This 69-nucleotide RNA from Cetraspora pellucida belongs to the Rfam family "Small nucleolar RNA SNORD56". The base pairs follow the family's consensus structure, which was predicted with PFOLD. The literature on the family includes a 2002 paper in Mol Cell Biol by Galardi et al., "Purified box C/D snoRNPs are able to reproduce site-specific 2'-O-methylation of target RNA in vitro". Rfam 15.1 lists 796 matches to the family in 432 species.

[Rfam]
RNA sequence: CUGAGAAAAUAUCAAUAUUUUUCAUCAACAGUUGUUCAGCUUGGGUAUGUUGCUCUUGGGUAAGUUCAA
Numbered sequence: 001c002u003g004a005g006a007a008a009a010u011a012u013c014a015a016u017a018u019u020u021u022u023c024a025u026c027a028a029c030a031g032u033u034g035u036u037c038a039g040c041u042u043g044g045g046u047a048u049g050u051u052g053c054u055c056u057u058g059g060g061u062a063a064g065u066u067c068a069a
Base pairs, nucleotide, nucleotide: 002068003067004066009025010024